[Rfam]
RNA: Bacterial RNase P class A
Organism: Pseudomonas sp. OIL-1
RNA sequence: AGAGUUGGCUGGACAGUCGCCGUACCGCUUGCGGUAGGGAGGAAAGUCCGGGCUCCAUAGGGCAGAGUGCCAGGUAACACCUGGGGGGCGUGAGCCUACGGAAAGUGCAGCAGAAAAUAUACCGCCUAAGCGCGCAAGCGCCGGUAAGGUUGAAAUGGUGCGGUAAGAGCGCACCGCGCAGCUGGUAACAGACUGUGGCUAGGUAAACCCCGCUCGGAGCAAGACCAAAUAGGAACCCGUUGGUGUGGCCCGCACUGGGUUCGGGUAGGUUGCUAGAGGCAGUCAGUGAUGGCUGUCGUAGAGGAAUGACUGUCCUCGACAGAACCCGGCUUACAGGCCAACUCUUAUU
Numbered sequence: 001a002g003a004g005u006u007g008g009c010u011g012g013a014c015a016g017u018c019g020c021c022g023u024a025c026c027g028c029u030u031g032c033g034g035u036a037g038g039g040a041g042g043a044a045a046g047u048c049c050g051g052g053c054u055c056c057a058u059a060g061g062g063c064a065g066a067g068u069g070c071c072a073g074g075u076a077a078c079a080c081c082u083g084g085g086g087g088g089c090g091u092g093a094g095c096c097u098a099c100g101g102a103a104a105g106u107g108c109a110g111c112a113g114a115a116a117a118u119a120u121a122c123c124g125c126c127u128a129a130g131c132g133c134g135c136a137a138g139c140g141c142c143g144g145u146a147a148g149g150u151u152g153a154a155a156u157g158g159u160g161c162g163g164u165a166a167g168a169g170c171g172c173a174c175c176g177c178g179c180a181g182c183u184g185g186u187a188a189c190a191g192a193c194u195g196u197g198g199c200u201a202g203g204u205a206a207a208c209c210c211c212g213c214u215c216g217g218a219g220c221a222a223g224a225c226c227a228a229a230u231a232g233g234a235a236c237c238c239g240u241u242g243g244u245g246u247g248g249c250c251c252g253c254a255c256u257g258g259g260u261u262c263g264g265g266u267a268g269g270u271u272g273c274u275a276g277a278g279g280c281a282g283u284c285a286g287u288g289a290u291g292g293c294u295g296u297c298g299u300a301g302a303g304g305a306a307u308g309a310c311u312g313u314c315c316u317c318g319a320c321a322g323a324a325c326c327c328g329g330c331u332u333a334c335a336g337g338c339c340a341a342c343u344c345u346u347a348u349u
Base pairs, nucleotide, nucleotide: 001345002344003343004342005341006340007339008338009337010336011334012314013313014312015311016310017309018308020039021038023036024035025034026033027032044332045331046330048329049328050327051326052325053219054218055217056216060251061250062249063248065215066214067213068212069211070084071083072082073081074080085099086097087096088095089094100210101209105208106207107204108203122149123148124145125144126143130141131140132139133138157175158174159173160172161171162170176199177197178196179195180194181193182191183190184189223271224270225269226268233262234261235260236259237258238257242256243255244254245253246252278297279296280295281294282293283292284291285290